[Rfam]
Background: ZMP/ZTP riboswitch aptamer (pfl RNA motif): a 79-nucleotide sequence from Rhodococcus sp. RD6.2. The base pairs follow the family's consensus structure, which is taken from published work.

RNA sequence: CGCCCGUAUCGCGACUGGCGUUUGAGUGGGACACUGCAAGGAAGCGAAUUUCGGAGCGUCGUACGCCUGGGCGCUCCUC
Numbered sequence: 001c002g003c004c005c006g007u008a009u010c011g012c013g014a015c016u017g018g019c020g021u022u023u024g025a026g027u028g029g030g031a032c033a034c035u036g037c038a039a040g041g042a043a044g045c046g047a048a049u050u051u052c053g054g055a056g057c058g059u060c061g062u063a064c065g066c067c068u069g070g071g072c073g074c075u076c077c078u079c
Stems, first nucleotide, its partner, number of pairs: 003053001006050001009047004015041002017067005026037004056074005